[Rfam]
RNA: Fluoride riboswitch aptamer (crcB RNA motif)
Organism: Photobacterium sp. SKA34
RNA sequence: AUUAUGGCGGGAGAUGAUGUUCCUCCUUAAACCGCCUUUCAAUCAAGGAUAAUGACGUCUAACAACAU
Numbered sequence: 001a002u003u004a005u006g007g008c009g010g011g012a013g014a015u016g017a018u019g020u021u022c023c024u025c026c027u028u029a030a031a032c033c034g035c036c037u038u039u040c041a042a043u044c045a046a047g048g049a050u051a052a053u054g055a056c057g058u059c060u061a062a063c064a065a066c067a068u
Stems, first nucleotide, its partner, number of pairs: 010026004016059006035048003